[Rfam]
RNA sequence: GUAUCGCCCGGUUCAUAAACCGGGCGCGGAUUGAAAC
Numbered sequence: 001g002u003a004u005c006g007c008c009c010g011g012u013u014c015a016u017a018a019a020c021c022g023g024g025c026g027c028g029g030a031u032u033g034a035a036a037c
Base pairs, nucleotide, nucleotide: 005026006025007024008023009022010021011020012019013018

Overview
Rfam assigns this 37-nucleotide sequence from Acidithiobacillus sulfuriphilus to the family "CRISPR RNA direct repeat element". Rfam 15.1 lists 1,410 matches to the family in 44 species. The base pairs follow the family's consensus structure, which was predicted with WAR. NCBI's taxonomy places the organism under Bacteria, Pseudomonadota, Acidithiobacillia, Acidithiobacillaceae, Acidithiobacillus. It scores 49 bits against the family's covariance model.